[Rfam]
The family of this 87-nucleotide RNA from Cervus elaphus is "Small nucleolar RNA SNORD86". Lineage of the source: Eukaryota > Eumetazoa > Cervidae > Cervus > Cervus elaphus. Rfam describes the family as follows. U86 belongs to the C/D family of snoRNAs. It is the human orthologue of Xenopus laevis U86 and has no identified RNA target. The literature on the family includes a 2001 paper in Biochem Biophys Res Commun by Filippini et al., "U86, a novel snoRNA with an unprecedented gene organization in yeast".

RNA sequence: GGUUUAAUAGUAAUGGUUGACCAGGGCUCCCUGAGUUCUACAGGCCUCUGUUAUGGGGGUGAUGGCCAGUCUUGGUACUGAGAGAUU
Number, nucleotide and partner (000 for none) at each position: 001g087002g086003u085004u084005u083006a000007a000008u000009a000010g078011u000012a000013a000014u077015g000016g000017u000018u000019g000020a076021c075022c074023a073024g072025g071026g070027c069028u068029c065030c064031c000032u062033g000034a060035g000036u058037u057038c000039u000040a000041c055042a054043g052044g051045c050046c000047u000048c000049u000050g045051u044052u043053a000054u042055g041056g000057g037058g036059g000060u034061g000062a032063u000064g030065g029066c000067c000068a028069g027070u026071c025072u024073u023074g022075g021076u020077a014078c010079u000080g000081a000082g000083a005084g004085a003086u002087u001